[Rfam]
RNA sequence: CAACUGGAUAGCUCGACGGGGCGAUAAGCGGUCUUCAUCACACUGUUUCCAGUUGUCCUUUCGUGAUG
Numbered sequence: 001c002a003a004c005u006g007g008a009u010a011g012c013u014c015g016a017c018g019g020g021g022c023g024a025u026a027a028g029c030g031g032u033c034u035u036c037a038u039c040a041c042a043c044u045g046u047u048u049c050c051a052g053u054u055g056u057c058c059u060u061u062c063g064u065g066a067u068g
Stems, first nucleotide, its partner, number of pairs: 001055008011022004028046005036068006
A member of the RNA family "int-alpA RNA", 68 nucleotides long.
The sequence is in the family's curated seed alignment.
Rfam classes the family as a small RNA.